[Rfam]
RNA: cspA thermoregulator
RNA sequence: AUCGGUUUGGAAGACAGACCUUAUGAAAGCAGUUUUAGUAAAGCAGUCCUCAGUUCAAGCGCUAUCAAGUCAUCAGAUACCCUUCUUCGUGAGUCUCCUCCUAAGUGCCUAAAUAAGAAACGUUCUGCAAUACAGACCACGUUCGCCAUAUUAAAUGGCUGUAAAAUAAUGAGGAAGUAUCUAUGUCUAAAAUGACUGGUUUAGUAAAAUGGUUUAACCCAGAAAAAGGUUUCGGUUUCAUCACUCCUGACAAUGGUAGCAAAGAUGUGUUCGUUCACUUCUCUGCCAUUCAGAGCAAUGAUUUCAAAACUCUGGACGAAGGCCAGAAAGUUGAGUUCUCUGUUGAGAACGGCGCUAAAGGUCCAUCAGCAACUAACGUUGUUGCUCUGUAAGACUGCUAACGCAUACUGAGACUUACGCAUGCGAAGACGGUGAAUAACCCGAGCCGUUAAGUCAAAGUGAAUAAACCCGCCAUUGUGCGGGUUUUUU
Numbered sequence: 001a002u003c004g005g006u007u008u009g010g011a012a013g014a015c016a017g018a019c020c021u022u023a024u025g026a027a028a029g030c031a032g033u034u035u036u037a038g039u040a041a042a043g044c045a046g047u048c049c050u051c052a053g054u055u056c057a058a059g060c061g062c063u064a065u066c067a068a069g070u071c072a073u074c075a076g077a078u079a080c081c082c083u084u085c086u087u088c089g090u091g092a093g094u095c096u097c098c099u100c101c102u103a104a105g106u107g108c109c110u111a112a113a114u115a116a117g118a119a120a121c122g123u124u125c126u127g128c129a130a131u132a133c134a135g136a137c138c139a140c141g142u143u144c145g146c147c148a149u150a151u152u153a154a155a156u157g158g159c160u161g162u163a164a165a166a167u168a169a170u171g172a173g174g175a176a177g178u179a180u181c182u183a184u185g186u187c188u189a190a191a192a193u194g195a196c197u198g199g200u201u202u203a204g205u206a207a208a209a210u211g212g213u214u215u216a217a218c219c220c221a222g223a224a225a226a227a228g229g230u231u232u233c234g235g236u237u238u239c240a241u242c243a244c245u246c247c248u249g250a251c252a253a254u255g256g257u258a259g260c261a262a263a264g265a266u267g268u269g270u271u272c273g274u275u276c277a278c279u280u281c282u283c284u285g286c287c288a289u290u291c292a293g294a295g296c297a298a299u300g301a302u303u304u305c306a307a308a309a310c311u312c313u314g315g316a317c318g319a320a321g322g323c324c325a326g327a328a329a330g331u332u333g334a335g336u337u338c339u340c341u342g343u344u345g346a347g348a349a350c351g352g353c354g355c356u357a358a359a360g361g362u363c364c365a366u367c368a369g370c371a372a373c374u375a376a377c378g379u380u381g382u383u384g385c386u387c388u389g390u391a392a393g394a395c396u397g398c399u400a401a402c403g404c405a406u407a408c409u410g411a412g413a414c415u416u417a418c419g420c421a422u423g424c425g426a427a428g429a430c431g432g433u434g435a436a437u438a439a440c441c442c443g444a445g446c447c448g449u450u451a452a453g454u455c456a457a458a459g460u461g462a463a464u465a466a467a468c469c470c471g472c473c474a475u476u477g478u479g480c481g482g483g484u485u486u487u488u489u
Stems, first nucleotide, its partner, number of pairs: 004020006028248002031245003043238001046237001048235002050229002054227002063222001069219001073217001076215002079213003085185001087183001089181001097174004105133003145159005187199002251345006264272002275333001277331004282327004286322002289316006299308001351364002354362003367389003370384004393455003462489002465486008